Description:
A member of the RNA family "Small nucleolar RNA SNORA81" from Kryptolebias marmoratus, 180 nucleotides long. The match comes from Rfam's covariance-model search (70 bits).
[Rfam]
RNA sequence: CUCUUCUGCAUUUACAGAAGUCUGCUAUAAUUGUGUGAUCCAGAUUUUCUGUUUCAUGCAAUAAUGCUAGCAGAGUAUCAGGCAGAAGGAGAUUAUUGUGCACUGCACUGAAAACGAGAUGUGGUUGAACCUCUUUCUUAAUGUUCAUUAGCCACACUCUCAAGGUGAUGUGCUACAACA
Numbered sequence: 001c002u003c004u005u006c007u008g009c010a011u012u013u014a015c016a017g018a019a020g021u022c023u024g025c026u027a028u029a030a031u032u033g034u035g036u037g038a039u040c041c042a043g044a045u046u047u048u049c050u051g052u053u054u055c056a057u058g059c060a061a062u063a064a065u066g067c068u069a070g071c072a073g074a075g076u077a078u079c080a081g082g083c084a085g086a087a088g089g090a091g092a093u094u095a096u097u098g099u100g101c102a103c104u105g106c107a108c109u110g111a112a113a114a115c116g117a118g119a120u121g122u123g124g125u126u127g128a129a130c131c132u133c134u135u136u137c138u139u140a141a142u143g144u145u146c147a148u149u150a151g152c153c154a155c156a157c158u159c160u161c162a163a164g165g166u167g168a169u170g171u172g173c174u175a176c177a178a179c180a
Stems, first nucleotide, its partner, number of pairs: 021074001023072005030065004036056002041051003100173004106167002122151001124149001126147004
It is annotated as an H/ACA-box small nucleolar RNA.